[Rfam]
RNA sequence: GUGGCCGUAGCUCAAUGGCAGAGCCAUGGAUUGUGGAUCCGUUGAUGUCGGUUCGACUCCGACCGGUCACC
Numbered sequence: 001g002u003g004g005c006c007g008u009a010g011c012u013c014a015a016u017g018g019c020a021g022a023g024c025c026a027u028g029g030a031u032u033g034u035g036g037a038u039c040c041g042u043u044g045a046u047g048u049c050g051g052u053u054c055g056a057c058u059c060c061g062a063c064c065g066g067u068c069a070c071c
Stems, first nucleotide, its partner, number of pairs: 001070007010024004026042005047063005
tRNA: a 71-nucleotide RNA from Rhizobacter terrae. The family's consensus secondary structure is taken from published work. Its family is annotated with triplet codon-amino acid adaptor activity in the Gene Ontology. It is annotated as a transfer RNA. The source organism's lineage runs through Bacteria, Pseudomonadati, Burkholderiales, Sphaerotilaceae and Rhizobacter. A search with the family's covariance model found it, with a score of 62 bits.